A member of the RNA family "HNH endonuclease-associated RNA and ORF (HEARO) RNA" from Dictyobacter alpinus, 233 nucleotides long. On this family, see Weinberg et al., Nature 2009: "Exceptional structured noncoding RNAs revealed by bacterial metagenome analysis".
[Rfam]
Nucleotides: 233
Base pairs, nucleotide, nucleotide: 001070002069003068004067005066006065010029012026013025016023017022030059031058032057033056034055035054036053037052038051039050040049073219074218075217077215078095079094080093081092082091098213099212100211101210102208103207104206105205106204107203115149116148119143120142121141122140123139124138125137126136127229129227131225132224133223134222151195152194153193154192155191156190157189158188159187163186164185166183167182168181170179
Number, partner (000 for none) and nucleotide at each position: 001070g002069u003068c004067a005066u006065g007000a008000a009000c010029c011000a012026c013025c014000c015000g016023c017022u018000u019000a020000a021000a022017a023016g024000c025013g026012g027000g028000g029010g030059c031058g032057u033056g034055c035054a036053a037052a038051c039050g040049g041000a042000c043000g044000a045000a046000a047000g048000g049040c050039u051038g052037u053036u054035u055034g056033c057032a058031c059030g060000c061000c062000g063000a064000a065006c066005a067004u068003g069002a070001c071000c072000a073219g074218a075217c076000u077215c078095a079094g080093g081092c082091u083000u084000g085000a086000a087000a088000g089000a090000c091082a092081g093080c094079c095078u096000a097000c098213g099212u100211u101210a102208g103207a104206a105205g106204c107203g108000a109000a110000a111000u112000g113000a114000g115149g116148u117000a118000c119143g120142u121141u122140g123139g124138g125137g126136u127229g128000c129227g130000a131225g132224g133223c134222c135000a136126g137125c138124u139123c140122c141121g142120a143119c144000c145000u146000c147000u148116a149115c150000a151195g152194u153193g154192g155191a156190u157189a158188a159187u160000g161000a162000a163186a164185u165000a166183u167182c168181u169000g170179u171000a172000c173000a174000u175000g176000g177000u178000g179170a180000a181168g182167g183166a184000a185164g186163u187159g188158u189157u190156g191155u192154c193153c194152a195151c196000g197000u198000u199000a200000a201000a202000c203107c204106g205105c206104u207103u208102c209000a210101u211100a212099a213098c214000a215077g216000u217075g218074u219073c220000a221000a222134g223133g224132c225131c226000a227129u228000a229127u230000u231000c232000a233000c
Taxonomically the source falls in Dictyobacter (Bacteria, Bacillati, Ktedonobacterales, Dictyobacteraceae). The match comes from Rfam's covariance-model search (120 bits).